[Rfam]
RNA: MIR8008 microRNA precursor family
Organism: Solanum tuberosum
RNA sequence: AAACCCAGAAAAGCGACGGACAGUGUCCUUUAGUCCGUAGUUUUUCUGGAUUUUC
Numbered sequence: 001a002a003a004c005c006c007a008g009a010a011a012a013g014c015g016a017c018g019g020a021c022a023g024u025g026u027c028c029u030u031u032a033g034u035c036c037g038u039a040g041u042u043u044u045u046c047u048g049g050a051u052u053u054u055c
Base pairs, nucleotide, nucleotide: 001053002052003051005049006048007047008046009045010044011043012042013041014040016038017037018036019035020034021033